Rfam assigns this 126-nucleotide RNA sequence from Vacuolonema iberomarrocanum to the family "Guanidine-I riboswitch aptamer". Its family is annotated with regulation of gene expression in the Gene Ontology. The match comes from Rfam's covariance-model search (84 bits). Taxonomically the source falls in Vacuolonema iberomarrocanum (Bacteria, Cyanobacteriota, Cyanophyceae, Oculatellaceae). The literature on the family includes a 2004 paper in Proc Natl Acad Sci U S A by Barrick et al., "New RNA motifs suggest an expanded scope for riboswitches in bacterial genetic control". About the family: This family represents a conserved RNA structure found upstream of the ykkC and yxkD genes in Bacillus subtilis and related genes in other bacteria.
RNA sequence: AAAAGAGGUUCCUAGGGUUCCGGCUUGUCACGAAGUGUCUGGUCCGAGAGGAGCCGAUCGGUUUUCUCAGGUGCAGGUUUGCCCUAUAUAAAACUGAUUACACGGAAGGAUAAAAGCCUGGGAGAA
Numbered sequence: 001a002a003a004a005g006a007g008g009u010u011c012c013u014a015g016g017g018u019u020c021c022g023g024c025u026u027g028u029c030a031c032g033a034a035g036u037g038u039c040u041g042g043u044c045c046g047a048g049a050g051g052a053g054c055c056g057a058u059c060g061g062u063u064u065u066c067u068c069a070g071g072u073g074c075a076g077g078u079u080u081g082c083c084c085u086a087u088a089u090a091a092a093a094c095u096g097a098u099u100a101c102a103c104g105g106a107a108g109g110a111u112a113a114a115a116g117c118c119u120g121g122g123a124g125a126a
Base pairs, nucleotide, nucleotide: 007055008054009053010052011051012050015045016044020042021041022039023036024035025034026033056099057098058097059096060095061094062093063092064091065090101121103124107119108118109117